[Rfam]
RNA sequence: GCAUGGCAGAAUACUGUGUUCUUUGAUCAGUAGUUUACACAGCCAGACACCAUGCAAAAGUAAAGUCUACACUUUAAAAUGACUGUGAUGGUAUGCUGUGUUUUCCAUAGUGUAUCAUUCAUUAUUAAAAGUGAAUACAAAU
Numbered sequence: 001g002c003a004u005g006g007c008a009g010a011a012u013a014c015u016g017u018g019u020u021c022u023u024u025g026a027u028c029a030g031u032a033g034u035u036u037a038c039a040c041a042g043c044c045a046g047a048c049a050c051c052a053u054g055c056a057a058a059a060g061u062a063a064a065g066u067c068u069a070c071a072c073u074u075u076a077a078a079a080u081g082a083c084u085g086u087g088a089u090g091g092u093a094u095g096c097u098g099u100g101u102u103u104u105c106c107a108u109a110g111u112g113u114a115u116c117a118u119u120c121a122u123u124a125u126u127a128a129a130a131g132u133g134a135a136u137a138c139a140a141a142u
Base pairs, nucleotide, nucleotide: 001055002054003053004052005051006050014042015041016040017039018038019037068135070133073129074128075127076126077125086124087123088118089117090116091115092114093113094112095111096110097109098108